A member of the RNA family "FMN riboswitch aptamer (RFN element)" from Agathobacter ruminis, 120 nucleotides long. Taxonomically the source falls in Agathobacter (Bacteria, Bacillati, Bacillota, Lachnospiraceae). From the family's description: The RFN element is a highly conserved domain that is found frequently in the 5'-untranslated regions of prokaryotic mRNAs that encode for flavin mononucleotide (FMN) biosynthesis and transport proteins.
RNA sequence: AUGAUUCUUCGGGGCAGGGUGUGAUUCCCUACCGGCGGUAAAGCCCGCGAGGCUGCAUAGCAGUCAUGAACAGGUGCAAUUCCUGUGCCGACAGUAUAGUCUGGAUGAGAGAAGAACGAU
Number, nucleotide and partner (000 for none) at each position: 001a000002u000003g000004a000005u116006u115007c114008u113009u112010c111011g000012g000013g000014g000015c000016a000017g029018g028019g027020u000021g000022u000023g000024a000025u000026u000027c019028c018029c017030u000031a100032c099033c090034g089035g048036c047037g046038g045039u000040a000041a000042a000043g088044c087045c038046c037047g036048c035049g000050a000051g000052g065053c000054u000055g000056c000057a000058u000059a000060g000061c000062a000063g000064u000065c052066a000067u000068g000069a000070a086071c085072a084073g083074g082075u000076g000077c000078a000079a000080u000081u000082c074083c073084u072085g071086u070087g044088c043089c034090g033091a000092c103093a102094g101095u000096a000097u000098a000099g032100u031101c094102u093103g092104g000105a000106u000107g000108a000109g000110a000111g010112a009113a008114g007115a006116a005117c000118g000119a000120u000